Record summary: Rfam assigns this 90-nucleotide sequence from Salinisphaera hydrothermalis to the family "Glycine riboswitch aptamer". About the family: This family represents the bacterial glycine riboswitch. Glycine riboswitches usually consist of two metabolite-binding aptamers domains with similar structures in tandem. The pairing is the family consensus, mapped onto this sequence.

RNA sequence: GCAAAACGCGUGGGAGAGAGCGGGGAACCCCCGCCGCCGAAGGCGCAAUUCCGCCCGGAAACGCUCAGGCCACAGGACCACGCACGGGCC
Numbered sequence: 001g002c003a004a005a006a007c008g009c010g011u012g013g014g015a016g017a018g019a020g021c022g023g024g025g026a027a028c029c030c031c032c033g034c035c036g037c038c039g040a041a042g043g044c045g046c047a048a049u050u051c052c053g054c055c056c057g058g059a060a061a062c063g064c065u066c067a068g069g070c071c072a073c074a075g076g077a078c079c080a081c082g083c084a085c086g087g088g089c090c
Base pairs, nucleotide, nucleotide: 008083009082010081011080012079013078020034021033022032023031036070037069038068039066040065043064044063045062050058